[Rfam]
Nucleotides: 118
Base pairs, nucleotide, nucleotide: 001118002117003116004115005114006113007112008111013042015041016040017039021032022031023030027084028083029082043077044076045075046074048073049072051069052068053067054066081110086107087106088105089104090103091102092101093100
Number, partner (000 for none) and nucleotide at each position: 001118c002117u003116c004115u005114c006113a007112u008111c009000a010000a011000g012000a013042g014000a015041g016040g017039u018000g019000g020000a021032g022031g023030g024000a025000u026000a027084c028083g029082g030023c031022c032021c033000u034000g035000u036000g037000a038000a039017g040016c041015c042013c043077g044076g045075c046074a047000a048073c049072c050000c051069g052068c053067u054066u055000u056000g057000c058000a059000a060000u061000g062000u063000a064000g065000c066054a067053a068052g069051c070000a071000g072049g073048g074046u075045g076044c077043c078000a079000a080000u081110u082029c083028c084027g085000g086107u087106g088105a089104a090103a091102c092101a093100u094000g095000u096000u097000u098000u099000c100093a101092u102091g103090u104089u105088u106087u107086g108000c109000a110081a111008g112007a113006u114005g115004a116003g117002g118001g
A member of the RNA family "SAM riboswitch aptamer (S box leader)" from Dictyobacter vulcani, 118 nucleotides long. Rfam links the family to the GO term regulation of gene expression. On this family, see Grundy and Henkin, Mol Microbiol 1998: "The S box regulon: a new global transcription termination control system for methionine and cysteine biosynthesis genes in gram-positive bacteria". The organism belongs to Dictyobacter, within Bacteria.